[Rfam]
RNA sequence: UCCUCCUACGAAGGCGUGUCUGUGGUUCUCCGUCUUCAGACAUGUAAGAAUUGGAGGCAAAGAAAUGUGGACUUGGAGAAGUCUGGGCCGGCUUGCUCCCUGCAGGCUCAAGAUCAACCAUCCCACAUAG
Numbered sequence: 001u002c003c004u005c006c007u008a009c010g011a012a013g014g015c016g017u018g019u020c021u022g023u024g025g026u027u028c029u030c031c032g033u034c035u036u037c038a039g040a041c042a043u044g045u046a047a048g049a050a051u052u053g054g055a056g057g058c059a060a061a062g063a064a065a066u067g068u069g070g071a072c073u074u075g076g077a078g079a080a081g082u083c084u085g086g087g088c089c090g091g092c093u094u095g096c097u098c099c100c101u102g103c104a105g106g107c108u109c110a111a112g113a114u115c116a117a118c119c120a121u122c123c124c125a126c127a128u129a130g
Stems, first nucleotide, its partner, number of pairs: 002057005015044007024030002069123003073120001090108007

Description
The record is a 130-nucleotide RNA from Phyllostomus discolor, which matches "Small nucleolar RNA SNORA38" in Rfam. Rfam describes the family as follows. ACA38 is a member of the H/ACA class of snoRNA that guide the sites of modification of uridines to pseudouridines. Taxonomically the source falls in Phyllostomus (Eukaryota, Chordata, Craniata, Dipnotetrapodomorpha). Rfam 15.1 lists 628 matches to the family in 149 species. Its family is annotated with RNA processing, nucleolus and Cajal body in the Gene Ontology.